[Rfam]
RNA sequence: AAGUGUUACAGGUCUUUUAGAAUUUGUAUGGCAGGCUUUUCAGUUUUUGCCAGAAAGCCCCU
Number, nucleotide and partner (000 for none) at each position: 001a000002a000003g000004u000005g000006u000007u000008a000009c000010a000011g000012g000013u000014c000015u000016u000017u000018u000019a000020g000021a000022a000023u000024u000025u000026g000027u000028a000029u000030g000031g000032c000033a000034g059035g058036c057037u056038u055039u054040u053041c000042a000043g050044u049045u000046u000047u000048u000049g044050c043051c000052a000053g040054a039055a038056a037057g036058c035059c034060c000061c000062u000
The family of this 62-nucleotide RNA from Piliocolobus tephrosceles is "U7 small nuclear RNA". The family has 49 seed sequences and 10,439 matches in Rfam 15.1. Animal histone pre-mRNAs are spliced by a different mechanism than nuclear pre-mRNAs and self-splicing introns. This processing involves the U7 snRNP, which contains only one RNA species: U7.